Record summary
The family of this 79-nucleotide sequence from Homarus americanus is "mir-965 microRNA precursor family". A reference for the family is Huang et al. (2012), "The regulation of silkworm fibroin L chain production by miRNA-965 and miRNA-1926 in insect cells", Bioorg Khim. A search with the family's covariance model found it, with a score of 48 bits. Taxonomically the source falls in Homarus (Eukaryota, Metazoa, Stomatocarida, Nephropoidea).
RNA sequence: AUACGGAGAGGGAGAAGUUGUCACGAUUAUGUAGCCCCGGCUGUUUCCAUCAUAAGCGUAUGGCUUUUCCCCUCUGCUA
Numbered sequence: 001a002u003a004c005g006g007a008g009a010g011g012g013a014g015a016a017g018u019u020g021u022c023a024c025g026a027u028u029a030u031g032u033a034g035c036c037c038c039g040g041c042u043g044u045u046u047c048c049a050u051c052a053u054a055a056g057c058g059u060a061u062g063g064c065u066u067u068u069c070c071c072c073u074c075u076g077c078u079a
Base pairs, nucleotide, nucleotide: 004076005075006074007073010071011070012069014067015066018063019062020061021060027055028054029053030052031051